About this RNA
This 116-nucleotide sequence from Tepidibacillus fermentans belongs to the Rfam family "SAM riboswitch aptamer (S box leader)".
RNA sequence: CUCUUAUCCAGAGCGGCGGAGGGACUGGCCCAAUGAAGCCCGGCAACCGACGCACAGUCUAACUGUGUUGGCAGGUGCUAAUUCCAGCAGAAUCUUAUGAUUCUGAAAGAUGAGGG
Numbered sequence: 001c002u003c004u005u006a007u008c009c010a011g012a013g014c015g016g017c018g019g020a021g022g023g024a025c026u027g028g029c030c031c032a033a034u035g036a037a038g039c040c041c042g043g044c045a046a047c048c049g050a051c052g053c054a055c056a057g058u059c060u061a062a063c064u065g066u067g068u069u070g071g072c073a074g075g076u077g078c079u080a081a082u083u084c085c086a087g088c089a090g091a092a093u094c095u096u097a098u099g100a101u102u103c104u105g106a107a108a109g110a111u112g113a114g115g116g
Stems, first nucleotide, its partner, number of pairs: 001116008013041001015040003021031003025087004042079004047075002049072001051070002083108001088105006